Source information
This 120-nucleotide sequence from Gammaproteobacteria bacterium LSUCC0057 belongs to the Rfam family "Ribosomal S15 leader". From the family's description: The E. coli Ribosomal S15 gene 5' UTR can form two alternative structures. One that is a series of three hairpins, The other includes a pseudoknot. This structure causes translational regulation of the S15 protein. The alignment of this family contains only the final two hairpins which are conserved in other species, and also includes the complete region that forms the alternate structures. Taxonomically the source falls in Porticoccaceae (Bacteria, Pseudomonadota, Gammaproteobacteria, Cellvibrionales). For this family Rfam cites "Pseudoknot and translational control in the expression of the S15 ribosomal protein" (Benard et al., Biochimie, 1996). It is annotated as a cis-regulatory leader.
[Rfam]
RNA sequence: UAGGUUACCUGUAAAUAUGCGCGGAUAACCUGGACUUUAAUCUGCAUAUUUAGGAGAAGUAACAUGGCACUGAGUGCAGAAGAGAAAGCGGCAAUUGUUGCCCAGCAUGGCAAGGGCGCU
Numbered sequence: 001u002a003g004g005u006u007a008c009c010u011g012u013a014a015a016u017a018u019g020c021g022c023g024g025a026u027a028a029c030c031u032g033g034a035c036u037u038u039a040a041u042c043u044g045c046a047u048a049u050u051u052a053g054g055a056g057a058a059g060u061a062a063c064a065u066g067g068c069a070c071u072g073a074g075u076g077c078a079g080a081a082g083a084g085a086a087a088g089c090g091g092c093a094a095u096u097g098u099u100g101c102c103c104a105g106c107a108u109g110g111c112a113a114g115g116g117c118g119c120u
Base pairs, nucleotide, nucleotide: 007026009024010023011022012021050074051073053071054070056068